[Rfam]
RNA sequence: CUGGGGGCUCCAAAGUGCUGUUCGUGCAGGUAGUGUGAUCACCUGACCUACUGCUGAGCCAGCACUUCCCGAGCCCC
Numbered sequence: 001c002u003g004g005g006g007g008c009u010c011c012a013a014a015g016u017g018c019u020g021u022u023c024g025u026g027c028a029g030g031u032a033g034u035g036u037g038a039u040c041a042c043c044u045g046a047c048c049u050a051c052u053g054c055u056g057a058g059c060c061a062g063c064a065c066u067u068c069c070c071g072a073g074c075c076c077c
Stems, first nucleotide, its partner, number of pairs: 004077004009072002013067008022058001026054002029052005
Dot-bracket structure: ...((((.((..((((((((.(...((.(((((..............)))))))...).))))))))...)).))))
RNA: mir-17 microRNA precursor family